This 168-nucleotide sequence from Dorea formicigenerans belongs to the Rfam family "Clostridiales-1 RNA". The source organism's lineage runs through Bacteria, Lachnospirales, Lachnospiraceae, Dorea and Dorea formicigenerans.

RNA sequence: UGAUGCCAGGGUCAAAAGUCAAUAAGCAUGUUGUGCUUGCACAUAAAUGCUUAUAUGACUUAGUGACCCGCCCCAAUAUGAGAAUAAAAGUGGGGCGUAAGCCACACGAUAUUCGAAUAUUGGGUAGGAUUGUGGGAGUGCAAAGCACGGAGCAAUCCGUGGGCAUCA
Numbered sequence: 001u002g003a004u005g006c007c008a009g010g011g012u013c014a015a016a017a018g019u020c021a022a023u024a025a026g027c028a029u030g031u032u033g034u035g036c037u038u039g040c041a042c043a044u045a046a047a048u049g050c051u052u053a054u055a056u057g058a059c060u061u062a063g064u065g066a067c068c069c070g071c072c073c074c075a076a077u078a079u080g081a082g083a084a085u086a087a088a089a090g091u092g093g094g095g096c097g098u099a100a101g102c103c104a105c106a107c108g109a110u111a112u113u114c115g116a117a118u119a120u121u122g123g124g125u126a127g128g129a130u131u132g133u134g135g136g137a138g139u140g141c142a143a144a145g146c147a148c149g150g151a152g153c154a155a156u157c158c159g160u161g162g163g164c165a166u167c168a
Base pairs, nucleotide, nucleotide: 001168002167003166004165005164006163007162010068011067012066013065016061017060018059019058020057021056022054023053024052025051026050027049028048029047032043033042034041035040072124073123074122075121076120077119078118079117082114083113084112085111090107091106092105094103095102096101127158128157129156130155131154132153133152138148139147140146141145
A search with the family's covariance model found it, with a score of 148 bits. The family's consensus secondary structure is taken from published work. By type it is a small RNA.